A member of the RNA family "BsrC" from Anoxybacteroides amylolyticum, 87 nucleotides long. Rfam classes the family as a small RNA. It scores 82 bits against the family's covariance model. Rfam's curators write: The 301 nucleotide sequence from Kouji Nakamura has been trimmed to a highly conserved ~85 nucleotide long core to form this family. NCBI's taxonomy places the organism under Bacteria, Bacillati, Bacillota, Bacilli, Anoxybacteroides.
RNA sequence: AAAACCUGAAACAAUGGAAGCCCUACCUCUCGUCCAUCCUUGCAGCUCCGAAGCUGCGCCAGUGUGAAUCUCGUUUUUCUUUCGUAA
Dot-bracket structure: ..................................((..(((((((((....)))))))..))..)).....................